[Rfam]
RNA sequence: AAAAUUAAAGGGCAAACUGUACCGAAAGGGCAGGACGCAAAGCCGCUGGUCUAACAACUUUUCAAUGAAAAGUACAUGAUGGCAGUGGUUGCAUUA
Numbered sequence: 001a002a003a004a005u006u007a008a009a010g011g012g013c014a015a016a017c018u019g020u021a022c023c024g025a026a027a028g029g030g031c032a033g034g035a036c037g038c039a040a041a042g043c044c045g046c047u048g049g050u051c052u053a054a055c056a057a058c059u060u061u062u063c064a065a066u067g068a069a070a071a072g073u074a075c076a077u078g079a080u081g082g083c084a085g086u087g088g089u090u091g092c093a094u095u096a
Stems, first nucleotide, its partner, number of pairs: 012038002017033004022029002041090004046085003049080003057073006
c-di-GMP-I riboswitch aptamer: a 96-nucleotide RNA from Shewanella salipaludis. A search with the family's covariance model found it, with a score of 56 bits. The source organism's lineage runs through Bacteria, Pseudomonadota, Gammaproteobacteria, Alteromonadales and Shewanella.